The record is a 101-nucleotide sequence from Mycolicibacterium fortuitum, which matches "Glycine riboswitch aptamer" in Rfam. A search with the family's covariance model found it, with a score of 51 bits.
RNA sequence: CGAGGCAACUCUGGAGAACUGCGUGCGUAAUUGUGCGCGUACCGAAGGGGAACAGGCGCGACCCGCCGAAAACUCUCAGGUUUCAGGACAGAGCGGAGGGG
Numbered sequence: 001c002g003a004g005g006c007a008a009c010u011c012u013g014g015a016g017a018a019c020u021g022c023g024u025g026c027g028u029a030a031u032u033g034u035g036c037g038c039g040u041a042c043c044g045a046a047g048g049g050g051a052a053c054a055g056g057c058g059c060g061a062c063c064c065g066c067c068g069a070a071a072a073c074u075c076u077c078a079g080g081u082u083u084c085a086g087g088a089c090a091g092a093g094c095g096g097a098g099g100g101g
Stems, first nucleotide, its partner, number of pairs: 006096001009093005020039006041081003044077002048075003055067004